[Rfam]
The record is a 139-nucleotide sequence from Panicum miliaceum, which matches "Small nucleolar RNA Z247" in Rfam. By type it is a C/D-box small nucleolar RNA. A reference for the family is Chen et al. (2003), "The high diversity of snoRNAs in plants: identification and comparative study of 120 snoRNA genes from Oryza sativa", Nucleic Acids Res. The base pairs follow the family's consensus structure, which was predicted with PFOLD. The family has 8 seed sequences and 7,071 matches in Rfam 15.1. It scores 58 bits against the family's covariance model.
RNA sequence: CAGUUGGAUGAAAAAGAAAUCAUCGCCAACAUCCUCAAUGGAUUGGAUGCUGACUUCAAUCCAAUGAUGUCUGCCCUUGUCACAAGGGCCGAACCAAUCUCAGUUGGGGAGGUAUAUGCUCAACUCCUCAGUUUUGAGA
Dot-bracket structure: ...((.((.....................................................................................(((((....)))))..........................)).)).